This 154-nucleotide RNA sequence from Xanthobacter versatilis belongs to the Rfam family "6S / SsrS RNA".
Lineage of the source: Bacteria > Pseudomonadati > Pseudomonadota > Xanthobacteraceae > Xanthobacter.
From the family's description: E. coli 6S RNA was the first non coding RNA to be sequenced, but its function was unknown until recently. It consists of 184 nucleotides that fold into an extended hairpin structure with a large single-stranded internal bulge. The 6S RNA specifically associates with RNA polymerase holoenzyme containing the sigma70 specificity factor. This interaction represses expression from a sigma70-dependent promoter during stationary phase. 6S RNA homologs have recently been identified in most bacterial genomes. Many Gram-positive species have two copies of 6S RNA. In Bacillus subtilis, both copies appear to interact with RNA polymerase holoenzyme containing the housekeeping sigma factor and be expressed during different stages of growth. In many proteobacteria, 6S RNA may be processed from a transcript encoding homologs of the E. coli YgfA protein which is a putative 5-formyltetrahydrofolate cycloligase activity.
[Rfam]
RNA sequence: GCGGGGCUGCGGGGCACGUUAGGAGACAUUUCCCCGGGGCCUUAUCGAUCCUUAAGGGAGCUGUCCCUGACCUCGUCCCUGGACUUGGACACACGGCGCCCACCUACGUUGUAGGUUCCCGGGAUCGAACUCCGACGGCUUCUGUGGCUCCGCA
Number, nucleotide and partner (000 for none) at each position: 001g000002c152003g151004g150005g149006g148007c147008u146009g145010c144011g143012g141013g140014g139015c138016a000017c137018g136019u135020u000021a000022g000023g000024a000025g000026a000027c000028a000029u000030u000031u124032c123033c122034c121035c000036g119037g118038g117039g116040c115041c114042u000043u000044a000045u000046c000047g000048a000049u000050c000051c000052u000053u000054a000055a000056g101057g100058g099059a000060g097061c096062u095063g094064u093065c000066c000067c000068u000069g000070a000071c088072c087073u000074c000075g084076u000077c000078c000079c000080u000081g000082g000083a000084c075085u000086u000087g072088g071089a000090c000091a000092c000093a064094c063095g062096g061097c060098g000099c058100c057101c056102a000103c000104c000105u000106a000107c000108g000109u000110u000111g000112u000113a000114g041115g040116u039117u038118c037119c036120c000121g034122g033123g032124a031125u000126c000127g000128a000129a000130c000131u000132c000133c000134g000135a019136c018137g017138g015139c014140u013141u012142c000143u011144g010145u009146g008147g007148c006149u005150c004151c003152g002153c000154a000
The family's consensus secondary structure is taken from published work.